[Rfam]
Nucleotides: 095
Base pairs, nucleotide, nucleotide: 001094002093003092004091005090006089007088010025011024012023013022027065028064029063030062031061071087072086073085074084075083
Number, partner (000 for none) and nucleotide at each position: 001094g002093g003092a004091g005090u006089u007088u008000u009000a010025g011024c012023u013022c014000a015000g016000u017000u018000g019000g020000g021000a022013g023012a024011g025010c026000g027065u028064c029063a030062g031061a032000c033000u034000g035000a036000a037000g038000u039000c040000c041000g042000a043000c044000u045000u046000c047000a048000g049000u050000c051000c052000a053000c054000a055000a056000u057000g058000a059000c060000a061031u062030c063029u064028g065027a066000a067000g068000g069000u070000c071087g072086u073085g074084u075083g076000u077000u078000c079000g080000a081000u082000c083075c084074a085073c086072a087071c088007a089006a090005a091004c092003u093002c094001c095000a

Shown here is a 95-nucleotide sequence from Clonostachys rhizophaga, a member of the family "tRNA". Rfam classes the family as a transfer RNA. From the family's description: Transfer RNA (tRNA) molecules are approximately 80 nucleotides in length. The match comes from Rfam's covariance-model search (60 bits). NCBI's taxonomy places the organism under Eukaryota, Fungi, saccharomyceta, Hypocreales, Clonostachys.